[Rfam]
RNA sequence: GGAGGAUUGCAGGCCCUCCGGAGCCGCCCUUCGGGGGGAGGCUUCAAACCGCCCUCUGCUGCGUUGGCUGAAGACCGUCGUGGUGAGCGAUGAGGGAAAAGGCGCACGUGAUGCGUCAGGU
Dot-bracket structure: (((((.........)))))((((((.((((....)))).))))))....(.((((((((.(((.(((.......))).))).)).....).)))))....((((((.....))))))..).
Numbered sequence: 001g002g003a004g005g006a007u008u009g010c011a012g013g014c015c016c017u018c019c020g021g022a023g024c025c026g027c028c029c030u031u032c033g034g035g036g037g038g039a040g041g042c043u044u045c046a047a048a049c050c051g052c053c054c055u056c057u058g059c060u061g062c063g064u065u066g067g068c069u070g071a072a073g074a075c076c077g078u079c080g081u082g083g084u085g086a087g088c089g090a091u092g093a094g095g096g097a098a099a100a101g102g103c104g105c106a107c108g109u110g111a112u113g114c115g116u117c118a119g120g121u
Stems, first nucleotide, its partner, number of pairs: 001019005020045006027038004050120001052096005057090001058084002061081003065077003101117006